[Rfam]
The record is a 93-nucleotide RNA sequence from Ferroacidibacillus organovorans, which matches "c-di-GMP-I riboswitch aptamer" in Rfam. Lineage of the source: Bacteria > Bacillati > Bacillota > Caryophanales > Ferroacidibacillus.
RNA sequence: UUGCUAACCGGGCAAACCUAUCGAAAGAUCGGGACGCAAAGCUACGGGCCUACUACACAUGGAUUAACGUGUUAUGGUGGCCGAGUUGCCGGA
Numbered sequence: 001u002u003g004c005u006a007a008c009c010g011g012g013c014a015a016a017c018c019u020a021u022c023g024a025a026a027g028a029u030c031g032g033g034a035c036g037c038a039a040a041g042c043u044a045c046g047g048g049c050c051u052a053c054u055a056c057a058c059a060u061g062g063a064u065u066a067a068c069g070u071g072u073u074a075u076g077g078u079g080g081c082c083g084a085g086u087u088g089c090c091g092g093a
Base pairs, nucleotide, nucleotide: 012037013036017032018031020029021028022027040087041086042085043084045083046082047081048078049077050076055072056071057070058069